[Rfam]
RNA sequence: CCCCUUUUCUAUGAGAGCCAUUUUGCCUAUAUUGGCGGUGCUGGCUUGCCAGCUAUGGUAAUAAAUGGACAGUGUAAUAAACCCAUUGGACCCGGGGGCGGUACCCGGCGCCUCCACCACAACCAAAACAGCUUUCAUUAUUCUGGUUGUUUUUGUUAUGAAGGGGGCGAAAUAGGAUCGACAAGGGCGUAAAGAUUGCUCUUUUACCCGGCAUUGUACCACCGUUAUCGGGCUACUUAAGUAGUUGCAAAUGACAACUAUGCGGAAGCUCGUCUCGCUGCUUAAUUGCGGCGCGAACGCUUCAAAUUAAGUCUUGGACCUUCGCCGGUCCAAGCGGGGUUCGGAGGCACCUGGCAACAGAAGCCUUCACU
Numbered sequence: 001c002c003c004c005u006u007u008u009c010u011a012u013g014a015g016a017g018c019c020a021u022u023u024u025g026c027c028u029a030u031a032u033u034g035g036c037g038g039u040g041c042u043g044g045c046u047u048g049c050c051a052g053c054u055a056u057g058g059u060a061a062u063a064a065a066u067g068g069a070c071a072g073u074g075u076a077a078u079a080a081a082c083c084c085a086u087u088g089g090a091c092c093c094g095g096g097g098g099c100g101g102u103a104c105c106c107g108g109c110g111c112c113u114c115c116a117c118c119a120c121a122a123c124c125a126a127a128a129c130a131g132c133u134u135u136c137a138u139u140a141u142u143c144u145g146g147u148u149g150u151u152u153u154u155g156u157u158a159u160g161a162a163g164g165g166g167g168c169g170a171a172a173u174a175g176g177a178u179c180g181a182c183a184a185g186g187g188c189g190u191a192a193a194g195a196u197u198g199c200u201c202u203u204u205u206a207c208c209c210g211g212c213a214u215u216g217u218a219c220c221a222c223c224g225u226u227a228u229c230g231g232g233c234u235a236c237u238u239a240a241g242u243a244g245u246u247g248c249a250a251a252u253g254a255c256a257a258c259u260a261u262g263c264g265g266a267a268g269c270u271c272g273u274c275u276c277g278c279u280g281c282u283u284a285a286u287u288g289c290g291g292c293g294c295g296a297a298c299g300c301u302u303c304a305a306a307u308u309a310a311g312u313c314u315u316g317g318a319c320c321u322u323c324g325c326c327g328g329u330c331c332a333a334g335c336g337g338g339g340u341u342c343g344g345a346g347g348c349a350c351c352u353g354g355c356a357a358c359a360g361a362a363g364c365c366u367u368c369a370c371u
Base pairs, nucleotide, nucleotide: 040053041052042051043050044049057208058207059206060205061204067201068200070198071197072196073195082187083186084185086184087183088182092108093107094106095105096104109169110168111167112166113165114164115163209224210223211222214235216233219231220230337352338351339350340349343368344367345366346365347364348363